RNA sequence: AUGAGUGAUGCCAAGUUCCCCGAUGCACAAUCGGGCGCAGAGCACGCGAUGGCCAGCACCAUGGCCGGGCUGGCCGGGCUGAACAUGGUCUAUGAGGCGG
Numbered sequence: 001a002u003g004a005g006u007g008a009u010g011c012c013a014a015g016u017u018c019c020c021c022g023a024u025g026c027a028c029a030a031u032c033g034g035g036c037g038c039a040g041a042g043c044a045c046g047c048g049a050u051g052g053c054c055a056g057c058a059c060c061a062u063g064g065c066c067g068g069g070c071u072g073g074c075c076g077g078g079c080u081g082a083a084c085a086u087g088g089u090c091u092a093u094g095a096g097g098c099g100g
Base pairs, nucleotide, nucleotide: 003012025032033062035060077098079096080095

A member of the RNA family "Pyrrolysine insertion sequence mttB" from Pontivivens insulae, 100 nucleotides long. It scores 53 bits against the family's covariance model. Pairs were carried over by alignment from the consensus structure, which was predicted with CMfinder. The family's RNA type in Rfam is cis-regulatory element. The organism belongs to Pontivivens, within Bacteria. A reference for the family is Theil Have et al. (2013), "Effects of using coding potential, sequence conservation and mRNA structure conservation for predicting pyrroly-sine containing genes", BMC Bioinformatics.